[Rfam]
RNA sequence: UGGGGUGGACCGCCGAAUCCUGCCACCGCUUCGGGCACCGUGACAUCUCGUUGGCAGGAGCGGGGGAACCACGAACACCGGACGCCGCGAUGGCGUCCUUGGGGUGAAGCCGGUCGAUCGUGACCGGCCGGGCGCGACUUCCGCCCGAACCCGACAGCUCACCCCACAGGCGACCGGAGAGGUCAC
Numbered sequence: 001u002g003g004g005g006u007g008g009a010c011c012g013c014c015g016a017a018u019c020c021u022g023c024c025a026c027c028g029c030u031u032c033g034g035g036c037a038c039c040g041u042g043a044c045a046u047c048u049c050g051u052u053g054g055c056a057g058g059a060g061c062g063g064g065g066g067a068a069c070c071a072c073g074a075a076c077a078c079c080g081g082a083c084g085c086c087g088c089g090a091u092g093g094c095g096u097c098c099u100u101g102g103g104g105u106g107a108a109g110c111c112g113g114u115c116g117a118u119c120g121u122g123a124c125c126g127g128c129c130g131g132g133c134g135c136g137a138c139u140u141c142c143g144c145c146c147g148a149a150c151c152c153g154a155c156a157g158c159u160c161a162c163c164c165c166a167c168a169g170g171c172g173a174c175c176g177g178a179g180a181g182g183u184c185a186c
Stems, first nucleotide, its partner, number of pairs: 011172004018059008060167001062165004070101002102152003110127004130146004
Dot-bracket structure: ..........((((...((((((((..........................))))))))(.((((....((............................))(((.....((((..........))))..((((.........))))...))).........)))).).))))..............
c-di-AMP riboswitch aptamer (ydaO/yuaA leader): a 186-nucleotide sequence from Pengzhenrongella frigida. About the family: This family represents a conserved RNA structure found upstream of the ydaO and yuaA genes in Bacillus subtilis and related genes in other bacteria.